[Rfam]
RNA sequence: CGUCUUUUUGCUAUGCGUGAUAUUUGACGAUUCGAACCUGCCGCAGGUUCGGGUCGAACGUCGUGAGACAACGGCGUCGUUUACGACAACGGCCCGAAGGGCGAGCGUAGCGAGUCAUCCUGCACGCCCCACCA
Dot-bracket structure: ..............(.(((...(.........((..(..........((((...((.......))......((...(.((.....)).)))...)))).).)).............)...))).).........
Shown here is a 134-nucleotide RNA sequence from Kluyvera cryocrescens, a member of the family "RtT RNA". It scores 48 bits against the family's covariance model. It is annotated as a cis-regulatory element. About the family: This family represents a bacterial cis-regulatory element known as RtT RNA. The exact function of RtT is unknown although it is thought that it may be involved in changing the cellular response in relation to amino acid starvation. On this family, see Bosl and Kersten, Nucleic Acids Res 1991: "A novel RNA product of the tyrT operon of Escherichia coli".